Shown here is a 72-nucleotide RNA sequence from Cyprinus carpio, a member of the family "mir-17 microRNA precursor family". This family represents the microRNA (miRNA) precursor mir-17, family, which includes mir-20, mir-91, and mir-103. miRNAs are transcribed as ~70nt precursors (modelled here) and subsequently processed by the Dicer enzyme to give a ~22nt product. Its family is annotated with miRNA-mediated post-transcriptional gene silencing and RISC complex in the Gene Ontology.
[Rfam]
RNA sequence: CGGGUGUUAAAAGUGCUGUUUGUGCAGGUAGCUGUGUUUUCUCUACUGUAGAAGCAGCACUUCACGACACAC
Numbered sequence: 001c002g003g004g005u006g007u008u009a010a011a012a013g014u015g016c017u018g019u020u021u022g023u024g025c026a027g028g029u030a031g032c033u034g035u036g037u038u039u040u041c042u043c044u045a046c047u048g049u050a051g052a053a054g055c056a057g058c059a060c061u062u063c064a065c066g067a068c069a070c071a072c
Base pairs, nucleotide, nucleotide: 002072004070005069007067008066011062012061013060014059015058016057017056018055019054020053021052023050024049025048027047028046029045030044031043